[Rfam]
RNA sequence: ACCUCAUCCAGAGGGGCUGAGGGAACGGCCCGAUGACGCCCCGGCAACCACCGCGCAUGUCUCGAUGACGAGGCCGCGUGCGGCAGGUGCUAAUUCCGUCCCCAUGUGCGUCGCACGACGCCCGGGGAAAGAUGAGAG
Numbered sequence: 001a002c003c004u005c006a007u008c009c010a011g012a013g014g015g016g017c018u019g020a021g022g023g024a025a026c027g028g029c030c031c032g033a034u035g036a037c038g039c040c041c042c043g044g045c046a047a048c049c050a051c052c053g054c055g056c057a058u059g060u061c062u063c064g065a066u067g068a069c070g071a072g073g074c075c076g077c078g079u080g081c082g083g084c085a086g087g088u089g090c091u092a093a094u095u096c097c098g099u100c101c102c103c104a105u106g107u108g109c110g111u112c113g114c115a116c117g118a119c120g121c122c123c124g125g126g127g128a129a130a131g132a133u134g135a136g137a138g
Stems, first nucleotide, its partner, number of pairs: 003136006013042005021031003025099004043091004048087002051083006095130001100127004
RNA: SAM riboswitch aptamer (S box leader)